[Rfam]
5' ureB small RNA: a 286-nucleotide RNA sequence from Zoogloea oleivorans. For this family Rfam cites "Helicobacter pylori 5'ureB-sRNA, a cis-encoded antisense small RNA, negatively regulates ureAB expression by transcription termination" (Wen et al., J Bacteriol, 2013). Taxonomically the source falls in Zoogloea (Bacteria, Pseudomonadati, Rhodocyclales, Zoogloeaceae).

RNA sequence: CUUCUUCGAUCUGCUGCGGGCAGAUGAAGUGGAUGUGGGUGUCGAUACCGCCGGCGGUGACGAUCAUGCCUUCACCGGCAAUGACCUCGGUGGCGGCGCCGAUGGCGAUGGUGACACCCGGCUGGAUGUCCGGGUUGCCGGCCUUGCCGAUGGCGCUGAUGCGCCCGUUCUUGAGGCCGAUGUCGGCCUUGACGAUGCCCCAGUGGUCGAGGAUCAGCGCGUUGGUGAUCACCGUGUCGGCCACUUCGGCGGCGAGGCGCUGGCCCUGGCCCAUGCCGUCGCGGAU
Numbered sequence: 001c002u003u004c005u006u007c008g009a010u011c012u013g014c015u016g017c018g019g020g021c022a023g024a025u026g027a028a029g030u031g032g033a034u035g036u037g038g039g040u041g042u043c044g045a046u047a048c049c050g051c052c053g054g055c056g057g058u059g060a061c062g063a064u065c066a067u068g069c070c071u072u073c074a075c076c077g078g079c080a081a082u083g084a085c086c087u088c089g090g091u092g093g094c095g096g097c098g099c100c101g102a103u104g105g106c107g108a109u110g111g112u113g114a115c116a117c118c119c120g121g122c123u124g125g126a127u128g129u130c131c132g133g134g135u136u137g138c139c140g141g142c143c144u145u146g147c148c149g150a151u152g153g154c155g156c157u158g159a160u161g162c163g164c165c166c167g168u169u170c171u172u173g174a175g176g177c178c179g180a181u182g183u184c185g186g187c188c189u190u191g192a193c194g195a196u197g198c199c200c201c202a203g204u205g206g207u208c209g210a211g212g213a214u215c216a217g218c219g220c221g222u223u224g225g226u227g228a229u230c231a232c233c234g235u236g237u238c239g240g241c242c243a244c245u246u247c248g249g250c251g252g253c254g255a256g257g258c259g260c261u262g263g264c265c266c267u268g269g270c271c272c273a274u275g276c277c278g279u280c281g282c283g284g285a286u
Base pairs, nucleotide, nucleotide: 002285003284005283007281008280009279011158013156014155016154017153018076019075022072023071030053031052032051034050035049037048039046040045057069058068059067077148078147081144083142085140090138091137092136093135094134095130096129097128099125100124102123103121105119107117163270165269166268167267172263174261175260177257178256186220187219189217190216191215200209223254224253231246234244235243236242